RNA sequence: ACCAGACAUAGGCUUAGCGGCUGAAAAGCGGAACCCGAAACCGCCUGGUCUGGUGCUUUUUUUGUUUUCGGG
Numbered sequence: 001a002c003c004a005g006a007c008a009u010a011g012g013c014u015u016a017g018c019g020g021c022u023g024a025a026a027a028g029c030g031g032a033a034c035c036c037g038a039a040a041c042c043g044c045c046u047g048g049u050c051u052g053g054u055g056c057u058u059u060u061u062u063u064g065u066u067u068u069c070g071g072g
Base pairs, nucleotide, nucleotide: 001054002053003052004051005050006049007048011022012021013020014019028044029043030042031041035072036071039068040067